[Rfam]
A member of the RNA family "mir-29 microRNA precursor family" from Scleropages formosus, 68 nucleotides long.

RNA sequence: GGAUGACUGAUUUCCUCUGGUGCUUAGAGUUCACUCUGCUUUCUAGCACCAUUUGAAAUCGGUUAUAA
Number, nucleotide and partner (000 for none) at each position: 001g000002g000003a066004u065005g063006a000007c062008u061009g060010a059011u058012u057013u056014c055015c000016u000017c000018u051019g050020g049021u048022g047023c000024u000025u045026a044027g043028a042029g000030u000031u000032c000033a000034c000035u000036c000037u000038g000039c000040u000041u000042u028043c027044u026045a025046g000047c022048a021049c020050c019051a018052u000053u000054u000055g014056a013057a012058a011059u010060c009061g008062g007063u005064u000065a004066u003067a000068a000
It scores 65 bits against the family's covariance model. A reference for the family is Ambros (2001), "microRNAs: tiny regulators with great potential", Cell. Rfam's curators write: This family represents the microRNA (miRNA) precursors mir-29.